[Rfam]
RNA sequence: AUUCGGCACCUUUCACAACGGAUCGUCCGGCACGUACCUGCCGGUGAAGGGAUACCACU
Numbered sequence: 001a002u003u004c005g006g007c008a009c010c011u012u013u014c015a016c017a018a019c020g021g022a023u024c025g026u027c028c029g030g031c032a033c034g035u036a037c038c039u040g041c042c043g044g045u046g047a048a049g050g051g052a053u054a055c056c057a058c059u
Stems, first nucleotide, its partner, number of pairs: 009051007027044006
Dot-bracket structure: ........(((((((...........((((((......)))))))))))))........
About this RNA: Shown here is a 59-nucleotide RNA sequence from Actinomyces sp. oral taxon 448, a member of the family "msiK RNA". It is annotated as a cis-regulatory element. A search with the family's covariance model found it, with a score of 66 bits.